The family of this 174-nucleotide RNA sequence from Melaminivora alkalimesophila is "Manganese Mn2+ riboswitch aptamer (yybP-ykoY)".
RNA sequence: GCGCCCGUCAUUGGGGAGUAGCCGCUCUUCGUUCGAAGAGGCCUACGUCAACACACUUGGCCCGCAGGCCAUGGCGUAGGCAGUCCCUUGGCCUGGCAAGACCUUUGACCACACCGCCUCCGGACUGGCCGGGGAAGCGGUGUGGUCAUUCGUCUUCGAACCGGCCUUGAGGAU
Numbered sequence: 001g002c003g004c005c006c007g008u009c010a011u012u013g014g015g016g017a018g019u020a021g022c023c024g025c026u027c028u029u030c031g032u033u034c035g036a037a038g039a040g041g042c043c044u045a046c047g048u049c050a051a052c053a054c055a056c057u058u059g060g061c062c063c064g065c066a067g068g069c070c071a072u073g074g075c076g077u078a079g080g081c082a083g084u085c086c087c088u089u090g091g092c093c094u095g096g097c098a099a100g101a102c103c104u105u106u107g108a109c110c111a112c113a114c115c116g117c118c119u120c121c122g123g124a125c126u127g128g129c130c131g132g133g134g135a136a137g138c139g140g141u142g143u144g145g146u147c148a149u150u151c152g153u154c155u156u157c158g159a160a161c162c163g164g165c166c167u168u169g170a171g172g173a174u
Base pairs, nucleotide, nucleotide: 026039027038028037041081042080043079044078045077046076047075048074049073050072058071059070060069061068062067083174084173085172086171088169